MIR2617 microRNA precursor family: an 87-nucleotide sequence from Medicago truncatula.
The organism belongs to Medicago, within Eukaryota.
The match comes from Rfam's covariance-model search (56 bits).
Rfam links the family to the GO terms RISC complex and miRNA-mediated post-transcriptional gene silencing.

[Rfam]
RNA sequence: AUGUAGUGUGACAUGCCCGUUGGGGUUUUACUCUGAUUGUUGAAAUAUGAUUAUUUAAUUGAUUUUGGGAAACGGGGUGUUACAAUA
Numbered sequence: 001a002u003g004u005a006g007u008g009u010g011a012c013a014u015g016c017c018c019g020u021u022g023g024g025g026u027u028u029u030a031c032u033c034u035g036a037u038u039g040u041u042g043a044a045a046u047a048u049g050a051u052u053a054u055u056u057a058a059u060u061g062a063u064u065u066u067g068g069g070a071a072a073c074g075g076g077g078u079g080u081u082a083c084a085a086u087a
Stems, first nucleotide, its partner, number of pairs: 004087002007084008016076006